[Rfam]
RNA sequence: CAGAUACAGUGAUGAUAACAUAGUUCAGCAGAGUGUGCUGUGAUGAGCUCUUUUGUCUUUCGCUCCUAUCUGAUGUAUCUG
Numbered sequence: 001c002a003g004a005u006a007c008a009g010u011g012a013u014g015a016u017a018a019c020a021u022a023g024u025u026c027a028g029c030a031g032a033g034u035g036u037g038c039u040g041u042g043a044u045g046a047g048c049u050c051u052u053u054u055g056u057c058u059u060u061c062g063c064u065c066c067u068a069u070c071u072g073a074u075g076u077a078u079c080u081g
Stems, first nucleotide, its partner, number of pairs: 004078005
Rfam assigns this 81-nucleotide sequence from Furnarius figulus to the family "Small nucleolar RNA snR60/Z15/Z230/Z193/J17".
By type it is a C/D-box small nucleolar RNA.
Lineage of the source: Eukaryota > Dipnotetrapodomorpha > Telluraves > Furnariidae > Furnarius.
Gene Ontology terms of the family: RNA processing and nucleolus.
The literature on the family includes a 2004 paper in Curr Biol by Tycowski et al., "Guide RNAs with 5' caps and novel box C/D snoRNA-like domains for modification of snRNAs in metazoa".